[Rfam]
Source information: Rfam assigns this 169-nucleotide RNA sequence from Etheostoma spectabile to the family "Small nucleolar RNA SNORA23". The members of this family belong to the H/ACA class of snoRNAs which are thought to guide the sites of modification of uridines to pseudouridines. This family includes human snoRNA ACA23 (SNORA23) and mouse snoMBI-1. ACA23 is predicted to guide the pseudouridylation of residue U3737 and U4331 of 28S rRNA. The source organism's lineage runs through Eukaryota, Bilateria, Deuterostomia, Neoteleostei and Oligocephalus. A reference for the family is Huttenhofer et al. (2001), "RNomics: an experimental approach that identifies 201 candidates for novel, small, non-messenger RNAs in mouse", EMBO J. Rfam links the family to the GO terms nucleolus and RNA processing.
RNA sequence: GGUGGAUGGUGUGCACGGUGCACGUCUGUGUUAUGUGCUGUUGCCUGACUGUGUUUUGCAGGCUGGGCAGCAGUGCUCACUCCACACCUGCAGCCAUAGAGCAACUGGAGAUCAUAGUACUGGUCCUUGACAUCUCACCAUUGGCCAGCCUCCAAACUCUCCUACAUGA
Numbered sequence: 001g002g003u004g005g006a007u008g009g010u011g012u013g014c015a016c017g018g019u020g021c022a023c024g025u026c027u028g029u030g031u032u033a034u035g036u037g038c039u040g041u042u043g044c045c046u047g048a049c050u051g052u053g054u055u056u057u058g059c060a061g062g063c064u065g066g067g068c069a070g071c072a073g074u075g076c077u078c079a080c081u082c083c084a085c086a087c088c089u090g091c092a093g094c095c096a097u098a099g100a101g102c103a104a105c106u107g108g109a110g111a112u113c114a115u116a117g118u119a120c121u122g123g124u125c126c127u128u129g130a131c132a133u134c135u136c137a138c139c140a141u142u143g144g145c146c147a148g149c150c151u152c153c154a155a156a157c158u159c160u161c162c163u164a165c166a167u168g169a
Base pairs, nucleotide, nucleotide: 013091014090015089030080031079035077036075037074038073039072040071041070043068044067045065047063050060051059052058107162108161109160110159111158120148121147122146123145124144125143128137129136